Nucleotides: 069
Stems, first nucleotide, its partner, number of pairs: 001016004006038006025068003032040001042063008
Number, partner (000 for none) and nucleotide at each position: 001016a002015g003014u004013c005000g006038u007037g008036u009035g010034a011033g012000c013004g014003a015002c016001u017000a018000u019000a020000a021000a022000c023000a024000g025068g026067c027066u028000u029000u030000a031000g032040g033011c034010u035009c036008a037007c038006a039000g040032c041000g042063u043062c044061g045060c046059g047058g048057g049056g050000u051000u052000u053000a054000u055000c056049c057048c058047c059046c060045g061044u062043g063042g064000g065000u066027a067026g068025c069000a

Rfam assigns this 69-nucleotide sequence from Bequatrovirus B4 to the family "Pistol ribozyme". The literature on the family includes a 2015 paper in Nat Chem Biol by Weinberg et al., "New classes of self-cleaving ribozymes revealed by comparative genomics analysis". Gene Ontology term of the family: catalytic activity. The match comes from Rfam's covariance-model search (71 bits).